[Rfam]
RNA sequence: UCUACGCAUACCCGAGGGUGGAUGAGAAACACCGGGCGGUUCGAGCCGAGCGCCGACGUCGUGCAGCGCACGACGGCCCGAAGGGGAACAAUCCACCCCUCACCACCA
Numbered sequence: 001u002c003u004a005c006g007c008a009u010a011c012c013c014g015a016g017g018g019u020g021g022a023u024g025a026g027a028a029a030c031a032c033c034g035g036g037c038g039g040u041u042c043g044a045g046c047c048g049a050g051c052g053c054c055g056a057c058g059u060c061g062u063g064c065a066g067c068g069c070a071c072g073a074c075g076g077c078c079c080g081a082a083g084g085g086g087a088a089c090a091a092u093c094c095a096c097c098c099c100u101c102a103c104c105a106c107c108a
Stems, first nucleotide, its partner, number of pairs: 016098006023091001040082004047055002057075006

A member of the RNA family "RtT RNA" from Marinobacterium lutimaris, 108 nucleotides long. The source organism's lineage runs through Bacteria, Pseudomonadati, Pseudomonadota, Oceanospirillales and Marinobacterium. The match comes from Rfam's covariance-model search (47 bits). From the family's description: This family represents a bacterial cis-regulatory element known as RtT RNA. The exact function of RtT is unknown although it is thought that it may be involved in changing the cellular response in relation to amino acid starvation. On this family, see Bosl and Kersten, Nucleic Acids Res 1991: "A novel RNA product of the tyrT operon of Escherichia coli".